[Rfam]
The record is a 271-nucleotide sequence from Ustilago bromivora, which matches "Group I catalytic intron" in Rfam. The match comes from Rfam's covariance-model search (84 bits). The base pairs follow the family's consensus structure, which is taken from published work. From the family's description: Group I catalytic introns are large self-splicing ribozymes.

RNA sequence: AUAAGAAGGCGCGUAAGCGCGAUUUUGAAUACAAUAAGUAUUGAGCCCAAGUAAAACUGGAUGAAUUGCAGGGAAAACUAAAGAUAAGUUUAGUUAAUCUGCAGCGAAGCUAUUAUCAGCACCUUAUUACCUGAAAAGUUAAUUUGUAGAUAAUAGAACGUUCAACGACUAAUCGGUGAGCUGUGCUAGCAAUAAUCCGGACACGAGCGUCCAGCAGAAAAUAAAUAUUUAUUUUCUGAUGAAAUAGUCUGAACAAUGGUGUGAAUCAUUG
Numbered sequence: 001a002u003a004a005g006a007a008g009g010c011g012c013g014u015a016a017g018c019g020c021g022a023u024u025u026u027g028a029a030u031a032c033a034a035u036a037a038g039u040a041u042u043g044a045g046c047c048c049a050a051g052u053a054a055a056a057c058u059g060g061a062u063g064a065a066u067u068g069c070a071g072g073g074a075a076a077a078c079u080a081a082a083g084a085u086a087a088g089u090u091u092a093g094u095u096a097a098u099c100u101g102c103a104g105c106g107a108a109g110c111u112a113u114u115a116u117c118a119g120c121a122c123c124u125u126a127u128u129a130c131c132u133g134a135a136a137a138g139u140u141a142a143u144u145u146g147u148a149g150a151u152a153a154u155a156g157a158a159c160g161u162u163c164a165a166c167g168a169c170u171a172a173u174c175g176g177u178g179a180g181c182u183g184u185g186c187u188a189g190c191a192a193u194a195a196u197c198c199g200g201a202c203a204c205g206a207g208c209g210u211c212c213a214g215c216a217g218a219a220a221a222u223a224a225a226u227a228u229u230u231a232u233u234u235u236c237u238g239a240u241g242a243a244a245u246a247g248u249c250u251g252a253a254c255a256a257u258g259g260u261g262u263g264a265a266u267c268a269u270u271g
Base pairs, nucleotide, nucleotide: 005032057214058213059212060211062209063208067103068102069101070100071099072098077094078093079092080091081090104161105160117149119147120146121145165250167249168248169247170246171245217236218235219234220233221232222231223230224229256269257268258267259266260265